[Rfam]
A member of the RNA family "TPP riboswitch aptamer (THI element)" from Roseburia inulinivorans, 126 nucleotides long. It scores 64 bits against the family's covariance model. The family's consensus secondary structure is taken from published work. Lineage of the source: Bacteria > Bacillati > Bacillota > Clostridia > Roseburia.
RNA sequence: CAAAAACGCUAGGGGCGCAAAAAAUGCUGCAUUUGCCAGACAUUCCAACGCUGAGAGAUGAUUUUUCAUCAACCCUUAUUACUUGAACCGGAUAAUACCGGCGUAAGGAAGCUUUUAUGAUAUUUC
Numbered sequence: 001c002a003a004a005a006a007c008g009c010u011a012g013g014g015g016c017g018c019a020a021a022a023a024a025u026g027c028u029g030c031a032u033u034u035g036c037c038a039g040a041c042a043u044u045c046c047a048a049c050g051c052u053g054a055g056a057g058a059u060g061a062u063u064u065u066u067c068a069u070c071a072a073c074c075c076u077u078a079u080u081a082c083u084u085g086a087a088c089c090g091g092a093u094a095a096u097a098c099c100g101g102c103g104u105a106a107g108g109a110a111g112c113u114u115u116u117a118u119g120a121u122a123u124u125u126c
Stems, first nucleotide, its partner, number of pairs: 006114001008112003011076004017051002058069004082107004088101004